[Rfam]
RNA sequence: GGUGGAGCCGACCCACCAUUGUUGUCUUACAGGGGAGAGCAUCAAACCCCAUAAGGUGCUUUGGUAAAGAGUCAAGGUAUUGAGCGUUAUGGAAACGACCAAUCCAAGAGUUUGGUCAGGU
Numbered sequence: 001g002g003u004g005g006a007g008c009c010g011a012c013c014c015a016c017c018a019u020u021g022u023u024g025u026c027u028u029a030c031a032g033g034g035g036a037g038a039g040c041a042u043c044a045a046a047c048c049c050c051a052u053a054a055g056g057u058g059c060u061u062u063g064g065u066a067a068a069g070a071g072u073c074a075a076g077g078u079a080u081u082g083a084g085c086g087u088u089a090u091g092g093a094a095a096c097g098a099c100c101a102a103u104c105c106a107a108g109a110g111u112u113u114g115g116u117c118a119g120g121u
Stems, first nucleotide, its partner, number of pairs: 001017005020041004025036004048120001049092006055081002058078003062074004097117006